[Rfam]
RNA sequence: AAAAGUUGAAUCAGAACCAAAAACCAUGAUAACUCUGUAGGCAUUACUUCGAGCAAGCGAAUUAAUAAGUAUCCAAAUGAAAGCCCUUCUACGAGUCGUCAGCCUAGUCAUUAUUAACGUCGUCGUGAUUAUUAUCACGCCGUGCGGGGCUACGCUUGGAGAAAAAAAGGAUUAAAAAUCAAGCCUAAUUUCGAAAGAACCCCCGCACCGAAAGGUCAGGGGUUUUUUUUUGCAGGGCAUUAAUGUAGAGAGAAACAGAAGAUGAAUAGUAGAAUACUAUGCUGUUUUUCCAAGCAGAG
Numbered sequence: 001a002a003a004a005g006u007u008g009a010a011u012c013a014g015a016a017c018c019a020a021a022a023a024c025c026a027u028g029a030u031a032a033c034u035c036u037g038u039a040g041g042c043a044u045u046a047c048u049u050c051g052a053g054c055a056a057g058c059g060a061a062u063u064a065a066u067a068a069g070u071a072u073c074c075a076a077a078u079g080a081a082a083g084c085c086c087u088u089c090u091a092c093g094a095g096u097c098g099u100c101a102g103c104c105u106a107g108u109c110a111u112u113a114u115u116a117a118c119g120u121c122g123u124c125g126u127g128a129u130u131a132u133u134a135u136c137a138c139g140c141c142g143u144g145c146g147g148g149g150c151u152a153c154g155c156u157u158g159g160a161g162a163a164a165a166a167a168a169g170g171a172u173u174a175a176a177a178a179u180c181a182a183g184c185c186u187a188a189u190u191u192c193g194a195a196a197g198a199a200c201c202c203c204c205g206c207a208c209c210g211a212a213a214g215g216u217c218a219g220g221g222g223u224u225u226u227u228u229u230u231u232g233c234a235g236g237g238c239a240u241u242a243a244u245g246u247a248g249a250g251a252g253a254a255a256c257a258g259a260a261g262a263u264g265a266a267u268a269g270u271a272g273a274a275u276a277c278u279a280u281g282c283u284g285u286u287u288u289u290c291c292a293a294g295c296a297g298a299g
Base pairs, nucleotide, nucleotide: 005033006032007031008030038075040073041072044068045067046066048064049060050059086252087251089248090247091246094244099242101240102238103237104236105235106231107230109119111117121142122141124139125138127136128135129134143160145158146157147156148155163191164190169186170185172183173182194228195227196226197225198224199223200222201221202220203219205217207216208215209214254286255285256284257283258282260280262275263274
The family of this 299-nucleotide RNA sequence from Candidatus Erwinia dacicola is "Soft rot Enterobacteriaceae Rev 39 5'UTR". For this family Rfam cites "Discovery and profiling of small RNAs responsive to stress conditions in the plant pathogen Pectobacterium atrosepticum" (Kwenda et al., BMC Genomics, 2016). From bacteria cultured under starvation conditions. Gene Ontology term of the family: cellular response to starvation.